[Rfam]
RNA sequence: AUGAGAGCAAGGGGAGAGACUGCAGCAUACGCAUGCAGCGCCGAAGGAGCAAACUGAUGUGAAUCUCUCAGGCAAAAGAACUCUUGCUUGACG
Numbered sequence: 001a002u003g004a005g006a007g008c009a010a011g012g013g014g015a016g017a018g019a020c021u022g023c024a025g026c027a028u029a030c031g032c033a034u035g036c037a038g039c040g041c042c043g044a045a046g047g048a049g050c051a052a053a054c055u056g057a058u059g060u061g062a063a064u065c066u067c068u069c070a071g072g073c074a075a076a077a078g079a080a081c082u083c084u085u086g087c088u089u090g091a092c093g
Stems, first nucleotide, its partner, number of pairs: 006088008020038004040073003043069002047067003053060002
Glycine riboswitch aptamer: a 93-nucleotide RNA from Metabacillus indicus. Gene Ontology term of the family: glycine biosynthetic process. Rfam describes the family as follows. This family represents the bacterial glycine riboswitch. The pairing is the family consensus, mapped onto this sequence.